About this RNA:
The record is a 136-nucleotide sequence from Saccharopolyspora elongata, which matches "FMN riboswitch aptamer (RFN element)" in Rfam. Rfam's curators write: The RFN element is a highly conserved domain that is found frequently in the 5'-untranslated regions of prokaryotic mRNAs that encode for flavin mononucleotide (FMN) biosynthesis and transport proteins. The match comes from Rfam's covariance-model search (93 bits).
[Rfam]
RNA sequence: UCGUGCGCUCCGGGGUCGGUGAAAAUCCGAACCGGCGGUGAAAGUCCGCGAACCGGCGCCUCCACGCGGAGGUGUCGGCCGAUCCGGUGGAAUUCCGGGACCGACGGUGAAAGUCCGGAUGAGAGGCAGCGCACGG
Numbered sequence: 001u002c003g004u005g006c007g008c009u010c011c012g013g014g015g016u017c018g019g020u021g022a023a024a025a026u027c028c029g030a031a032c033c034g035g036c037g038g039u040g041a042a043a044g045u046c047c048g049c050g051a052a053c054c055g056g057c058g059c060c061u062c063c064a065c066g067c068g069g070a071g072g073u074g075u076c077g078g079c080c081g082a083u084c085c086g087g088u089g090g091a092a093u094u095c096c097g098g099g100a101c102c103g104a105c106g107g108u109g110a111a112a113g114u115c116c117g118g119a120u121g122a123g124a125g126g127c128a129g130c131g132c133a134c135g136g
Stems, first nucleotide, its partner, number of pairs: 003134007010125001017029003031114002033103002035049004044101002053078005083099005105117003